[Rfam]
RNA sequence: UCGAAUUCUCAGGGCGGGGUGAAAGUCCCCACCGGCGGUAUCCCGACUUUUGAGCGGGGAGCCCGCGAGCGCUUCUUCCAUCGGGGAGGAAGGUCAGCAGAUCUGGUGAAAUGCCAGGGCCGACGGUUAAAGUCCGGAUAAAAGAGGAUCGAG
Number, nucleotide and partner (000 for none) at each position: 001u000002c000003g000004a000005a149006u148007u147008c146009u145010c144011a000012g000013g000014g000015c000016g000017g029018g028019g027020u000021g000022a000023a000024a000025g000026u000027c019028c018029c017030c000031a133032c132033c122034g121035g066036c065037g064038g063039u000040a000041u000042c000043c000044c000045g000046a000047c000048u000049u000050u000051u000052g000053a000054g000055c000056g000057g000058g000059g000060a000061g120062c119063c038064c037065g036066c035067g000068a000069g098070c097071g000072c000073u000074u000075c000076u000077u000078c000079c000080a000081u000082c000083g000084g000085g000086g000087a000088g000089g000090a000091a000092g000093g000094u000095c000096a000097g070098c069099a000100g000101a000102u118103c117104u116105g115106g114107u000108g000109a000110a000111a000112u000113g000114c106115c105116a104117g103118g102119g062120c061121c034122g033123a000124c136125g135126g134127u000128u000129a000130a000131a000132g032133u031134c126135c125136g124137g000138a000139u000140a000141a000142a000143a000144g010145a009146g008147g007148a006149u005150c000151g000152a000153g000
The family of this 153-nucleotide RNA from Desulfuromusa kysingii is "FMN riboswitch aptamer (RFN element)". The source organism's lineage runs through Bacteria, Pseudomonadati, Thermodesulfobacteriota, Desulfuromonadia and Desulfuromusa. The match comes from Rfam's covariance-model search (107 bits).